[Rfam]
RNA sequence: CGACGGGCCACUCCUCCCCAACGAGGAGCUUUCAUCUGCAAGGAUGACGCAU
Dot-bracket structure: ..........((((((......))))))...((((((....)))))).....
This 52-nucleotide RNA sequence from Methylobacterium sp. Leaf399 belongs to the Rfam family "serC leader". About the family: This family is a putative regulatory RNA structure that is found upstream of the serC-serA operon in some alpha-proteobacteria. The final stem of the structure overlaps the ribosome binding site of the serC reading frame. The literature on the family includes a 2005 paper in Genome Biol by Corbino et al., "Evidence for a second class of S-adenosylmethionine riboswitches and other regulatory RNA motifs in alpha-proteobacteria". The match comes from Rfam's covariance-model search (61 bits).